[Rfam]
RNA sequence: GGCUUGUCCAGUGCAGUGGUGCUUACAGCUAAUUGAUCACAACCAGUUAUAGAUGUCUUUGUUUCUUCUCGACUCCCACUGCUUCACUUCACUAGCCUUAA
Dot-bracket structure: ((((.((..(..(.(((((.(.....(((.((.........................)).)))...........))))))....)..)..)).))))....
Numbered sequence: 001g002g003c004u005u006g007u008c009c010a011g012u013g014c015a016g017u018g019g020u021g022c023u024u025a026c027a028g029c030u031a032a033u034u035g036a037u038c039a040c041a042a043c044c045a046g047u048u049a050u051a052g053a054u055g056u057c058u059u060u061g062u063u064u065c066u067u068c069u070c071g072a073c074u075c076c077c078a079c080u081g082c083u084u085c086a087c088u089u090c091a092c093u094a095g096c097c098u099u100a101a
Stems, first nucleotide, its partner, number of pairs: 001097004006092002010088001013085001015080005021075001027063003031059002
The record is a 101-nucleotide RNA, which matches "Y RNA" in Rfam. Pairs were carried over by alignment from the consensus structure, which is taken from published work. Rfam's curators put it in the seed alignment. Rfam classes the family as a non-coding RNA gene.